Annotation:
Rfam assigns this 131-nucleotide sequence from Nocardioides sp. dk884 to the family "FMN riboswitch aptamer (RFN element)". The RFN element is a highly conserved domain that is found frequently in the 5'-untranslated regions of prokaryotic mRNAs that encode for flavin mononucleotide (FMN) biosynthesis and transport proteins. The organism belongs to Nocardioides, within Bacteria. It scores 93 bits against the family's covariance model.
RNA sequence: UCGCGUGCUCUGGGGUCGGUGCAAUUCCGAGCCGGCGGUGAAAGUCCGCGACCCGGUCACAUCCAGUGACCGGCUGACCAGGUGUAACUCCUGGACCGACGGUUAAAGUCCGGAUGGGAAGACGCACGCAG
Numbered sequence: 001u002c003g004c005g006u007g008c009u010c011u012g013g014g015g016u017c018g019g020u021g022c023a024a025u026u027c028c029g030a031g032c033c034g035g036c037g038g039u040g041a042a043a044g045u046c047c048g049c050g051a052c053c054c055g056g057u058c059a060c061a062u063c064c065a066g067u068g069a070c071c072g073g074c075u076g077a078c079c080a081g082g083u084g085u086a087a088c089u090c091c092u093g094g095a096c097c098g099a100c101g102g103u104u105a106a107a108g109u110c111c112g113g114a115u116g117g118g119a120a121g122a123c124g125c126a127c128g129c130a131g
Stems, first nucleotide, its partner, number of pairs: 003129006009122002017029003031109002033098002035049004044096002053073002078094005100112003